[Rfam]
RNA sequence: AUCACCUUUUAAUGAAUGUCCAGAGAGGCAUGGAAAGGUUUGGAUCAUGGGCUUGCUAUGCCCUUAUUUCCUCACACCUUCCUGCCCCUUGGAAGGUGUUUUUUUAU
Numbered sequence: 001a002u003c004a005c006c007u008u009u010u011a012a013u014g015a016a017u018g019u020c021c022a023g024a025g026a027g028g029c030a031u032g033g034a035a036a037g038g039u040u041u042g043g044a045u046c047a048u049g050g051g052c053u054u055g056c057u058a059u060g061c062c063c064u065u066a067u068u069u070c071c072u073c074a075c076a077c078c079u080u081c082c083u084g085c086c087c088c089u090u091g092g093a094a095g096g097u098g099u100u101u102u103u104u105u106a107u
Base pairs, nucleotide, nucleotide: 004039005038006037007036008035009034016031017030018029019028020027042070043069044068047065049063050062051061052060054058074099075098076097077096078095079094080093081092082091084089